[Rfam]
RNA: Xanthine riboswitch aptamer (NMT1 RNA)
RNA sequence: ACCCGGAGUAGAAGCUGUCAGCGCCUGCCUCGGCGCCGGUCAUUGCUCCCUUC
Numbered sequence: 001a002c003c004c005g006g007a008g009u010a011g012a013a014g015c016u017g018u019c020a021g022c023g024c025c026u027g028c029c030u031c032g033g034c035g036c037c038g039g040u041c042a043u044u045g046c047u048c049c050c051u052u053c
Stems, first nucleotide, its partner, number of pairs: 005049006015038001019039001021036005